[Rfam]
RNA sequence: CGAGGCGGCCGUGACUGGCGAAGGUGGACAACCACCGGGGAGCGGCCGCCUCGACCACCGGGCCUGCCGGGCGUCGUCGAGACCGCCGUGAGCGCCGCCCGCCUGGGCGCCAGGG
Numbered sequence: 001c002g003a004g005g006c007g008g009c010c011g012u013g014a015c016u017g018g019c020g021a022a023g024g025u026g027g028a029c030a031a032c033c034a035c036c037g038g039g040g041a042g043c044g045g046c047c048g049c050c051u052c053g054a055c056c057a058c059c060g061g062g063c064c065u066g067c068c069g070g071g072c073g074u075c076g077u078c079g080a081g082a083c084c085g086c087c088g089u090g091a092g093c094g095c096c097g098c099c100c101g102c103c104u105g106g107g108c109g110c111c112a113g114g115g
Stems, first nucleotide, its partner, number of pairs: 003051010015039002017103004024035004092110005
Shown here is a 115-nucleotide RNA from Isoptericola dokdonensis, a member of the family "ZMP/ZTP riboswitch aptamer (pfl RNA motif)". It scores 42 bits against the family's covariance model. The organism belongs to Isoptericola dokdonensis, within Bacteria. Pairs were carried over by alignment from the consensus structure, which is taken from published work.